RNA sequence: CUUUGAAGUAGAGGUUGCGCUAGCUAAAAGUAGUGAACAUUAGGGUGAUGCCUAAGAGUGUUCAUAAAAGGAGUUAGCGCCGAAGUAGUUGUACUCAUCAAGGUCGGCUGCUGGGGUUGUGUCCGAAAGGAGCAACACUGCCAUAGUAUUCCUGUCAGGGUGACGGGGUUUAUUUACUAUGGAGCGCUAUUGAUAGG
Numbered sequence: 001c002u003u004u005g006a007a008g009u010a011g012a013g014g015u016u017g018c019g020c021u022a023g024c025u026a027a028a029a030g031u032a033g034u035g036a037a038c039a040u041u042a043g044g045g046u047g048a049u050g051c052c053u054a055a056g057a058g059u060g061u062u063c064a065u066a067a068a069a070g071g072a073g074u075u076a077g078c079g080c081c082g083a084a085g086u087a088g089u090u091g092u093a094c095u096c097a098u099c100a101a102g103g104u105c106g107g108c109u110g111c112u113g114g115g116g117u118u119g120u121g122u123c124c125g126a127a128a129g130g131a132g133c134a135a136c137a138c139u140g141c142c143a144u145a146g147u148a149u150u151c152c153u154g155u156c157a158g159g160g161u162g163a164c165g166g167g168g169u170u171u172a173u174u175u176a177c178u179a180u181g182g183a184g185c186g187c188u189a190u191u192g193a194u195a196g197g
Stems, first nucleotide, its partner, number of pairs: 007191005017080009033065008084112008094102002113139002116136005122130002141182007